[Rfam]
RNA sequence: UUAGAGGCUUGUCGUUGUGAAAGUCAGAAUAUUAAAGCCAGUGCGAGAAGUUAUCAUCGAAAUAGACGUGUUCAUCAAAAUAUAAGCAAGCAUGCGGUACCAGGUCAACCUGGGGGUGUUUGUCAGUGUUGAGUCGCAGUUGGUCAUUAUUGAGUAGUCGUGGUCAGCAUGAGUAUGGAAGAGGGAGUGACAUCAAGGAGAGCGAUUGUCAGACGUUCAUUUCUGUACGACAAACAUUUCCGUAGGGCAAAUAAAUAUCCUCCGGCAUAGCCGGAGGUUUUU
Numbered sequence: 001u002u003a004g005a006g007g008c009u010u011g012u013c014g015u016u017g018u019g020a021a022a023g024u025c026a027g028a029a030u031a032u033u034a035a036a037g038c039c040a041g042u043g044c045g046a047g048a049a050g051u052u053a054u055c056a057u058c059g060a061a062a063u064a065g066a067c068g069u070g071u072u073c074a075u076c077a078a079a080a081u082a083u084a085a086g087c088a089a090g091c092a093u094g095c096g097g098u099a100c101c102a103g104g105u106c107a108a109c110c111u112g113g114g115g116g117u118g119u120u121u122g123u124c125a126g127u128g129u130u131g132a133g134u135c136g137c138a139g140u141u142g143g144u145c146a147u148u149a150u151u152g153a154g155u156a157g158u159c160g161u162g163g164u165c166a167g168c169a170u171g172a173g174u175a176u177g178g179a180a181g182a183g184g185g186a187g188u189g190a191c192a193u194c195a196a197g198g199a200g201a202g203c204g205a206u207u208g209u210c211a212g213a214c215g216u217u218c219a220u221u222u223c224u225g226u227a228c229g230a231c232a233a234a235c236a237u238u239u240c241c242g243u244a245g246g247g248c249a250a251a252u253a254a255a256u257a258u259c260c261u262c263c264g265g266c267a268u269a270g271c272c273g274g275a276g277g278u279u280u281u282u
Base pairs, nucleotide, nucleotide: 006025007024008023009022010021012020013019037248038247039246042244043243044242045241047240048239049238050237051236057230058229059228062226063225064224065223066222068220069219070218073215075213076212079130080129081128082127083126086123087122088121089120090119091118092117093116095113096110097109098108136209137208138207139206140205141204142203144201145200147199148198150196151195152194153193154176155175156174158172159171160170161169162168251282253280254279255278259277260276261275262274263273264272265271266270
This 282-nucleotide RNA sequence from Yersinia pestis belongs to the Rfam family "Yersinia sRNA 202". The family's RNA type in Rfam is small RNA. Rfam's curators write: The sRNA was identified by and is confirmed to have a stable secondary structure by using genome-wide structure probing at different temperatures. The function is unknown. It is one of the family's seed sequences. The literature on the family includes a 2016 paper in Proc Natl Acad Sci U S A by Righetti et al., "Temperature-responsive in vitro RNA structurome of Yersinia pseudotuberculosis".